A member of the RNA family "glmS glucosamine-6-phosphate activated ribozyme aptamer" from Bacillus licheniformis, 174 nucleotides long.
The base pairs follow the family's consensus structure, which is taken from published work.

[Rfam]
RNA sequence: UUUAUAGUUAUAGCGCCCGGACUAAGCGUACGGAUGAAACAGCUUAGUUGACGAGGAUGGAGGUUUAUCGAAUUUUCGGCGGAUGCCUCCCGGCUGACCUCAAAGAUCACAGCCGCAAGGAUUUCCUCAAACCAAAGAGGCGACUCUUUGAACAAAGGGAAAUUGCAUGAUCUU
Numbered sequence: 001u002u003u004a005u006a007g008u009u010a011u012a013g014c015g016c017c018c019g020g021a022c023u024a025a026g027c028g029u030a031c032g033g034a035u036g037a038a039a040c041a042g043c044u045u046a047g048u049u050g051a052c053g054a055g056g057a058u059g060g061a062g063g064u065u066u067a068u069c070g071a072a073u074u075u076u077c078g079g080c081g082g083a084u085g086c087c088u089c090c091c092g093g094c095u096g097a098c099c100u101c102a103a104a105g106a107u108c109a110c111a112g113c114c115g116c117a118a119g120g121a122u123u124u125c126c127u128c129a130a131a132c133c134a135a136a137g138a139g140g141c142g143a144c145u146c147u148u149u150g151a152a153c154a155a156a157g158g159g160a161a162a163u164u165g166c167a168u169g170a171u172c173u174u
Base pairs, nucleotide, nucleotide: 020049021048022047023046024045025044026043027042059090060089061088062087063086068079069078070077071076091115092114093113094112095111096110120164121163122162123161124160125159126158133150134149135148136147137146138145139144